[Rfam]
RNA sequence: GAUGGCGUAAAUGAUGACUGAAUUUUUUUCCCCGGCAGAUCGACUCUGUUGACUUUCAUAGAAAAAAUAAGCCAAAUUGUCUGAGCCAUC
Number, nucleotide and partner (000 for none) at each position: 001g090002a089003u088004g087005g086006c085007g000008u083009a082010a000011a000012u000013g000014a000015u000016g000017a000018c000019u000020g000021a000022a000023u000024u000025u000026u000027u000028u000029u000030c000031c000032c000033c000034g000035g000036c000037a000038g000039a000040u000041c000042g000043a000044c000045u000046c000047u000048g000049u000050u000051g000052a000053c000054u000055u000056u000057c000058a000059u000060a000061g000062a000063a000064a000065a000066a000067a000068u000069a000070a000071g000072c000073c000074a000075a000076a000077u000078u000079g000080u000081c000082u009083g008084a000085g006086c005087c004088a003089u002090c001